[Rfam]
RNA sequence: AGCUGUCUUCGGGGCGGGGUGAAAUUCCCCACUGGCGGUAAUGCGGCAUUUGCCGAUGAGCCCGCGAGCGUAAGCUGAUUUUGGUGCGAUCCCAAAGCCAACGGUACAGUCCGGAUGAAAGAAGCGGAU
Numbered sequence: 001a002g003c004u005g006u007c008u009u010c011g012g013g014g015c016g017g018g019g020u021g022a023a024a025u026u027c028c029c030c031a032c033u034g035g036c037g038g039u040a041a042u043g044c045g046g047c048a049u050u051u052g053c054c055g056a057u058g059a060g061c062c063c064g065c066g067a068g069c070g071u072a073a074g075c076u077g078a079u080u081u082u083g084g085u086g087c088g089a090u091c092c093c094a095a096a097g098c099c100a101a102c103g104g105u106a107c108a109g110u111c112c113g114g115a116u117g118a119a120a121g122a123a124g125c126g127g128a129u
Stems, first nucleotide, its partner, number of pairs: 003127003007124004017029003031110002033100002035065004060098002068075002080096005102113003
Overview:
A member of the RNA family "FMN riboswitch aptamer (RFN element)" from Anaeromassilibacillus sp. An200, 129 nucleotides long.